[Rfam]
RNA: U7 small nuclear RNA
RNA sequence: AAAUGUUACAGCUCUUUUAGAAUUUAUCUAGCAGGUUUUCUGGUCCUCACUGGACGACACCCCU
Numbered sequence: 001a002a003a004u005g006u007u008a009c010a011g012c013u014c015u016u017u018u019a020g021a022a023u024u025u026a027u028c029u030a031g032c033a034g035g036u037u038u039u040c041u042g043g044u045c046c047u048c049a050c051u052g053g054a055c056g057a058c059a060c061c062c063c064u
Stems, first nucleotide, its partner, number of pairs: 034061003037057002039054006